Record summary:
A member of the RNA family "Mason-Pfizer monkey virus packaging signal" from Chlorocebus sabaeus, 276 nucleotides long.

RNA sequence: UAGCGCCUCAACGUGGGGCCCGGAAACGAGGGAUUCCGUGAGGAAGAGGAUGCGAAAGAACGGUCGACCGCUAAAGUGAAACAAAAUUCCUCCAAUCACCGUGGGAGCCUGCCGCGUCAAGAUCGAAGGUAAGUAACGCGCCCAAAAUGGGACAAGAAUUAAGUCAACAUCAAAUCUAUGUAGAACAAUUAAAAGAGGCUUUAAAGACACGAGGAGUAAAGGUUAAAGGCAAUGAUUUGUUUAAAUUUUUUGACUUUGUAAAAGACACCUGCCCUU
Numbered sequence: 001u002a003g004c005g006c007c008u009c010a011a012c013g014u015g016g017g018g019c020c021c022g023g024a025a026a027c028g029a030g031g032g033a034u035u036c037c038g039u040g041a042g043g044a045a046g047a048g049g050a051u052g053c054g055a056a057a058g059a060a061c062g063g064u065c066g067a068c069c070g071c072u073a074a075a076g077u078g079a080a081a082c083a084a085a086a087u088u089c090c091u092c093c094a095a096u097c098a099c100c101g102u103g104g105g106a107g108c109c110u111g112c113c114g115c116g117u118c119a120a121g122a123u124c125g126a127a128g129g130u131a132a133g134u135a136a137c138g139c140g141c142c143c144a145a146a147a148u149g150g151g152a153c154a155a156g157a158a159u160u161a162a163g164u165c166a167a168c169a170u171c172a173a174a175u176c177u178a179u180g181u182a183g184a185a186c187a188a189u190u191a192a193a194a195g196a197g198g199c200u201u202u203a204a205a206g207a208c209a210c211g212a213g214g215a216g217u218a219a220a221g222g223u224u225a226a227a228g229g230c231a232a233u234g235a236u237u238u239g240u241u242u243a244a245a246u247u248u249u250u251u252g253a254c255u256u257u258g259u260a261a262a263a264g265a266c267a268c269c270u271g272c273c274c275u276u
Base pairs, nucleotide, nucleotide: 006032007031009030013027014026037049039047089129090128091126092125097121100116101115102114103113104112138153141151142150143149144148160203161202162201163199164198165197210252211251212250213249214248215247216246217245220238221237222236223235224234225233261276262275264273266271

The family's consensus secondary structure was predicted with PFOLD.